[Rfam]
RNA sequence: UCCUUCCUUGUCUUGGGGAGCAGAAAUGUCCAAUGAACGUAUAGUGAGGAUAUUGCUGCUGACACCAAUGAUUUAAAACCCCCGUUCACUGAUGUUGCAUCGGUGUUCGGAAUUUUUGGAAAA
Numbered sequence: 001u002c003c004u005u006c007c008u009u010g011u012c013u014u015g016g017g018g019a020g021c022a023g024a025a026a027u028g029u030c031c032a033a034u035g036a037a038c039g040u041a042u043a044g045u046g047a048g049g050a051u052a053u054u055g056c057u058g059c060u061g062a063c064a065c066c067a068a069u070g071a072u073u074u075a076a077a078a079c080c081c082c083c084g085u086u087c088a089c090u091g092a093u094g095u096u097g098c099a100u101c102g103g104u105g106u107u108c109g110g111a112a113u114u115u116u117u118g119g120a121a122a123a
Base pairs, nucleotide, nucleotide: 005019006018007017008016009015020059021058022057023056025054026053027052028051029050030049031048037045038044082110083109084108089103090102091101092100093099094098